[Rfam]
RNA sequence: UAGAACUGCUAUUUCGAAGUGUGGAAUGACGGAGUAACGCCCCGAAACACACUCGCUGAAGCUACGACAUGCAAGCGGAUGACUGCAAAACUGAAACUUGUAUGAAGCUCGUUAAAGUAGGCUGAAGUUCACCCAAACAGUACGGCUGUGGAAAGGGAGACAUCCUGUGAAUGAUAGGUCUGGCGUCUAUAAA
Numbered sequence: 001u002a003g004a005a006c007u008g009c010u011a012u013u014u015c016g017a018a019g020u021g022u023g024g025a026a027u028g029a030c031g032g033a034g035u036a037a038c039g040c041c042c043c044g045a046a047a048c049a050c051a052c053u054c055g056c057u058g059a060a061g062c063u064a065c066g067a068c069a070u071g072c073a074a075g076c077g078g079a080u081g082a083c084u085g086c087a088a089a090a091c092u093g094a095a096a097c098u099u100g101u102a103u104g105a106a107g108c109u110c111g112u113u114a115a116a117g118u119a120g121g122c123u124g125a126a127g128u129u130c131a132c133c134c135a136a137a138c139a140g141u142a143c144g145g146c147u148g149u150g151g152a153a154a155g156g157g158a159g160a161c162a163u164c165c166u167g168u169g170a171a172u173g174a175u176a177g178g179u180c181u182g183g184c185g186u187c188u189a190u191a192a193a
Stems, first nucleotide, its partner, number of pairs: 018053006031043002034040001054185004064112004068104008081091001119181005127172006133151003139147002155166004

Source information:
Rfam assigns this 193-nucleotide sequence from Caryophanon tenue to the family "Group II catalytic intron D1-D4-5". Rfam's curators write: Group II introns are found in rRNA, tRNA and mRNA of organelles in fungi, plants and protists, and also in mRNA in bacteria. The organism belongs to Caryophanon, within Bacteria. A search with the family's covariance model found it, with a score of 150 bits. Rfam 15.1 lists 720 matches to the family in 418 species. Its family is annotated with Group II intron splicing in the Gene Ontology.